The family of this 70-nucleotide sequence from Ameiurus melas is "miR-430 microRNA precursor family".
The organism belongs to Ameiurus, within Eukaryota.
The base pairs follow the family's consensus structure, which was predicted with RNAalifold.
Its Rfam clan is "mir-290 clan".

RNA sequence: AUUGAUACCCGAACAAUGGCUCUAACCUUCCUGAAUAAUUUGGUAAGUGCUAUUUGUUGGGGUUUUGGGU
Numbered sequence: 001a002u003u004g005a006u007a008c009c010c011g012a013a014c015a016a017u018g019g020c021u022c023u024a025a026c027c028u029u030c031c032u033g034a035a036u037a038a039u040u041u042g043g044u045a046a047g048u049g050c051u052a053u054u055u056g057u058u059g060g061g062g063u064u065u066u067g068g069g070u
Stems, first nucleotide, its partner, number of pairs: 004066002007063004013057004018051003022047002025044003